The record is a 70-nucleotide RNA from Eumeta japonica, which matches "mir-8/mir-141/mir-200 microRNA precursor family" in Rfam. Its Rfam clan is "mir-8 microRNA precursor clan". Taxonomically the source falls in Eumeta (Eukaryota, Lepidoptera, Psychidae, Oiketicinae). The family's consensus secondary structure was predicted with RNAalifold.
[Rfam]
RNA sequence: GUUCGCAUCUUACCGGGCAGCAUUAGAGUCUUUUCAUUAUUUUCUAAUACUGUCAGGUAAAGAUGUCCUC
Numbered sequence: 001g002u003u004c005g006c007a008u009c010u011u012a013c014c015g016g017g018c019a020g021c022a023u024u025a026g027a028g029u030c031u032u033u034u035c036a037u038u039a040u041u042u043u044c045u046a047a048u049a050c051u052g053u054c055a056g057g058u059a060a061a062g063a064u065g066u067c068c069u070c
Base pairs, nucleotide, nucleotide: 005066006065007064008063009062010060011059012058013057014056016054017053018052019051020050022048023047024046025045026044027043